[Rfam]
RNA sequence: CUGACCGGAACAAACGGUCGCCGGGCAAAUUAACGCCGGGAGGAAAGUCCGAACACCGCAGGGCAGGACGCUCCAUAACGUGGAGUCACGGUGACGUGAAGGAAAGUGCAACAGAGAGUAGACCGCCCGGCGACUCAUUUAAAUGAGUUGCCGGGUAAGGGUGAAACGGUGCGGUAAGAGCGCACCAGUUUUCCGGGUGACCGGGAAAGCUUGGUAAACCCCGUCCGGUGCAAGACCAAAUAGAGAGACGCUUGAGGGCUGCCCGUCCAAGUCUCCGGGUAGGUUGCUUGAGGUGUAUGGCAACAUGCAUCCUAGAUGAAUGACCGUUGAUUUUUUUGCGGGUAACUGCAAAAAAAUAACAGAAUUCGGCUUACGGGCCGGUCAGACCG
Numbered sequence: 001c002u003g004a005c006c007g008g009a010a011c012a013a014a015c016g017g018u019c020g021c022c023g024g025g026c027a028a029a030u031u032a033a034c035g036c037c038g039g040g041a042g043g044a045a046a047g048u049c050c051g052a053a054c055a056c057c058g059c060a061g062g063g064c065a066g067g068a069c070g071c072u073c074c075a076u077a078a079c080g081u082g083g084a085g086u087c088a089c090g091g092u093g094a095c096g097u098g099a100a101g102g103a104a105a106g107u108g109c110a111a112c113a114g115a116g117a118g119u120a121g122a123c124c125g126c127c128c129g130g131c132g133a134c135u136c137a138u139u140u141a142a143a144u145g146a147g148u149u150g151c152c153g154g155g156u157a158a159g160g161g162u163g164a165a166a167c168g169g170u171g172c173g174g175u176a177a178g179a180g181c182g183c184a185c186c187a188g189u190u191u192u193c194c195g196g197g198u199g200a201c202c203g204g205g206a207a208a209g210c211u212u213g214g215u216a217a218a219c220c221c222c223g224u225c226c227g228g229u230g231c232a233a234g235a236c237c238a239a240a241u242a243g244a245g246a247g248a249c250g251c252u253u254g255a256g257g258g259c260u261g262c263c264c265g266u267c268c269a270a271g272u273c274u275c276c277g278g279g280u281a282g283g284u285u286g287c288u289u290g291a292g293g294u295g296u297a298u299g300g301c302a303a304c305a306u307g308c309a310u311c312c313u314a315g316a317u318g319a320a321u322g323a324c325c326g327u328u329g330a331u332u333u334u335u336u337u338g339c340g341g342g343u344a345a346c347u348g349c350a351a352a353a354a355a356a357u358a359a360c361a362g363a364a365u366u367c368g369g370c371u372u373a374c375g376g377g378c379c380g381g382u383c384a385g386a387c388c389g
Stems, first nucleotide, its partner, number of pairs: 001385008011376001013328007021040002024037003045372003049369005054230004061264004066226005071085005086100001087098004101221002106219002108215002123160002125156014168186006188210001189208008234285004245275005256268004292311008
This 389-nucleotide RNA from Desulfobacter latus belongs to the Rfam family "Bacterial RNase P class A". Its family is annotated with dimeric ribonuclease P complex, tRNA processing and ribonuclease P activity in the Gene Ontology. The family's RNA type in Rfam is ribozyme. It scores 310 bits against the family's covariance model.